[Rfam]
RNA: mir-252 microRNA precursor family
RNA sequence: CAUUCAUUCUAAGUAGUAGUGCCGCAGGUAACAUUUUUUACGGCUUACCUGCUCACAUCUGCUUAAAAUGAAAU
Numbered sequence: 001c002a003u004u005c006a007u008u009c010u011a012a013g014u015a016g017u018a019g020u021g022c023c024g025c026a027g028g029u030a031a032c033a034u035u036u037u038u039u040a041c042g043g044c045u046u047a048c049c050u051g052c053u054c055a056c057a058u059c060u061g062c063u064u065a066a067a068a069u070g071a072a073a074u
Stems, first nucleotide, its partner, number of pairs: 003072005010065007019056001024052007